RNA sequence: CUUCACCGACCCCAGCCACACCGGACGGCCCGCCGGCCGGUCCCGUCCAUAGGUCGCCAGCAGCGCCUGCGCCUC
Numbered sequence: 001c002u003u004c005a006c007c008g009a010c011c012c013c014a015g016c017c018a019c020a021c022c023g024g025a026c027g028g029c030c031c032g033c034c035g036g037c038c039g040g041u042c043c044c045g046u047c048c049a050u051a052g053g054u055c056g057c058c059a060g061c062a063g064c065g066c067c068u069g070c071g072c073c074u075c
Stems, first nucleotide, its partner, number of pairs: 016024002031071003038065002043060001045058001047056001049054001
RNA: ASpks TB sRNA